[Rfam]
RNA sequence: CGUAUCCUUCGGGGCAGGGUGAAAAUCCCGACCGACGGUGAUGGCCGGCCUGACUCAAUCAGCGCUGUGCCUUAGUCCGUGACCCGCAGCUCAUCCGUUUUUCGUGAACGGGACUGCGGCUGACCCGGUGCAAUUCCGGGACCGACAGUAUAGUCUGGAUGGGAGAAGGAGAUA
Numbered sequence: 001c002g003u004a005u006c007c008u009u010c011g012g013g014g015c016a017g018g019g020u021g022a023a024a025a026u027c028c029c030g031a032c033c034g035a036c037g038g039u040g041a042u043g044g045c046c047g048g049c050c051u052g053a054c055u056c057a058a059u060c061a062g063c064g065c066u067g068u069g070c071c072u073u074a075g076u077c078c079g080u081g082a083c084c085c086g087c088a089g090c091u092c093a094u095c096c097g098u099u100u101u102u103c104g105u106g107a108a109c110g111g112g113a114c115u116g117c118g119g120c121u122g123a124c125c126c127g128g129u130g131c132a133a134u135u136c137c138g139g140g141a142c143c144g145a146c147a148g149u150a151u152a153g154u155c156u157g158g159a160u161g162g163g164a165g166a167a168g169g170a171g172a173u174a
Stems, first nucleotide, its partner, number of pairs: 003172001005170006017029003031154002033144002035080004084119006124140005146157003
The record is a 174-nucleotide RNA from Paenibacillus yonginensis, which matches "FMN riboswitch aptamer (RFN element)" in Rfam. On this family, see Vitreschak et al., Nucleic Acids Res 2002: "Regulation of riboflavin biosynthesis and transport genes in bacteria by transcriptional and translational attenuation". The source organism's lineage runs through Bacteria, Bacillati, Bacilli, Caryophanales and Paenibacillus.